RNA sequence: AGCUUUGCACUGAGGCAGUAUCAUAGCCAAACAGGUUUAUCUGAGGCAUGAUUAUUGCUAAUUGAAAUUAGAGUAGUCAACCAUAAUUUGCAUGUAUGCAUCAAAAAUUUAAACUUUCUCAAUAUAUAGUUUUU
Numbered sequence: 001a002g003c004u005u006u007g008c009a010c011u012g013a014g015g016c017a018g019u020a021u022c023a024u025a026g027c028c029a030a031a032c033a034g035g036u037u038u039a040u041c042u043g044a045g046g047c048a049u050g051a052u053u054a055u056u057g058c059u060a061a062u063u064g065a066a067a068u069u070a071g072a073g074u075a076g077u078c079a080a081c082c083a084u085a086a087u088u089u090g091c092a093u094g095u096a097u098g099c100a101u102c103a104a105a106a107a108u109u110u111a112a113a114c115u116u117u118c119u120c121a122a123u124a125u126a127u128a129g130u131u132u133u134u
Base pairs, nucleotide, nucleotide: 020052021051022050023049024048026047027046028045034042035041083127084126085125086123087122088121090118092116094114095113
A member of the RNA family "U4 spliceosomal RNA" from Neomonachus schauinslandi, 134 nucleotides long. It scores 57 bits against the family's covariance model. The family's RNA type in Rfam is spliceosomal small nuclear RNA. The family's consensus secondary structure is taken from published work. The source organism's lineage runs through Eukaryota, Pinnipedia, Monachinae, Monachini and Neomonachus. Rfam describes the family as follows. U4 small nuclear RNA (U4 snRNA) is a component of the major U2-dependent spliceosome. The literature on the family includes a 2017 paper in Cell by Bertram et al., "Cryo-EM Structure of a Pre-catalytic Human Spliceosome Primed for Activation".